Shown here is a 93-nucleotide RNA sequence from Paracoccus sp. S-4012, a member of the family "Rhodo-rpoB RNA".

RNA sequence: GGUUCGGGAGCCCCCGGUGGGACGGGCGGCACGCAUGGAACCUGGAACCACCCCGGUCUUGGCUGCCCGCACCGGGCCCGACGGUGUGCGGCG
Numbered sequence: 001g002g003u004u005c006g007g008g009a010g011c012c013c014c015c016g017g018u019g020g021g022a023c024g025g026g027c028g029g030c031a032c033g034c035a036u037g038g039a040a041c042c043u044g045g046a047a048c049c050a051c052c053c054c055g056g057u058c059u060u061g062g063c064u065g066c067c068c069g070c071a072c073c074g075g076g077c078c079c080g081a082c083g084g085u086g087u088g089c090g091g092c093g
Stems, first nucleotide, its partner, number of pairs: 001042005010030003013026004064093004068088001070086005
By type it is a cis-regulatory element. NCBI's taxonomy places the organism under Bacteria, Pseudomonadati, Pseudomonadota, Alphaproteobacteria, Paracoccus.